The family of this 194-nucleotide RNA from Trichoderma cornu-damae is "Small nucleolar RNA snR32". The organism belongs to Trichoderma, within Eukaryota. A search with the family's covariance model found it, with a score of 52 bits. It is annotated as an H/ACA-box small nucleolar RNA. The base pairs follow the family's consensus structure, which was predicted with WAR. On this family, see Balakin et al., Nucleic Acids Res 1993: "SnR31, snR32, and snR33: three novel, non-essential snRNAs from Saccharomyces cerevisiae".
RNA sequence: UAUAUCAAUUUUUUUUUUGCCAGAUUAUGACGUUGCUUUUAUCAGUUUCGUCCAUCGACAUCUUCGCUCAUCUCUCCUUUGACCUAGAUGUUUUCGCACUGGCAUAGAUCAACUAAGCUCGUUGCUGGGCACCCGGCUUGGAGAUGUCGUUUUGCACAUCAACGACAAGCCGGGAAUCAGCUGUAGAAACAUGU
Number, nucleotide and partner (000 for none) at each position: 001u000002a000003u000004a000005u000006c000007a000008a000009u000010u000011u000012u000013u000014u000015u000016u000017u000018u104019g103020c102021c101022a100023g099024a000025u000026u000027a000028u000029g052030a051031c050032g049033u000034u000035g046036c045037u044038u000039u000040u000041a000042u000043c000044a037045g036046u035047u000048u000049c032050g031051u030052c029053c090054a089055u088056c000057g000058a000059c000060a000061u000062c000063u000064u000065c000066g000067c000068u000069c000070a000071u000072c000073u000074c000075u000076c000077c000078u000079u000080u000081g000082a000083c000084c000085u000086a000087g000088a055089u054090g053091u000092u000093u000094u000095c000096g000097c000098a000099c023100u022101g021102g020103c019104a018105u000106a000107g000108a000109u000110c000111a000112a000113c000114u000115a000116a000117g000118c186119u000120c183121g182122u000123u000124g000125c000126u000127g000128g000129g000130c000131a000132c174133c173134c000135g000136g170137c169138u168139u167140g166141g000142a000143g160144a159145u158146g157147u156148c000149g000150u000151u000152u000153u000154g000155c000156a147157c146158a145159u144160c143161a000162a000163c000164g000165a000166c140167a139168a138169g137170c136171c000172g000173g133174g132175a000176a000177u000178c000179a000180g000181c000182u121183g120184u000185a000186g118187a000188a000189a000190c000191a000192u000193g000194u000